The family of this 80-nucleotide sequence from Desulfolithobacter dissulfuricans is "Group II catalytic intron D1-D4-1". Group II introns are found in rRNA, tRNA and mRNA of organelles in fungi, plants and protists, and also in mRNA in bacteria. Taxonomically the source falls in Desulfolithobacter (Bacteria, Desulfobulbia, Desulfobulbales, Desulfobulbaceae).
[Rfam]
RNA sequence: CGUCCUGCAUGGAAACAUGCCGGAUGAUCAGGCAGGAGUCAGCAGCGGUCAUAGUAGCUCCACCAUGCGGAGCGAAGGAC
Numbered sequence: 001c002g003u004c005c006u007g008c009a010u011g012g013a014a015a016c017a018u019g020c021c022g023g024a025u026g027a028u029c030a031g032g033c034a035g036g037a038g039u040c041a042g043c044a045g046c047g048g049u050c051a052u053a054g055u056a057g058c059u060c061c062a063c064c065a066u067g068c069g070g071a072g073c074g075a076a077g078g079a080c
Base pairs, nucleotide, nucleotide: 001026002025004023005022007020008019009018010017011016040045048080049079050078057073058072059071060070061069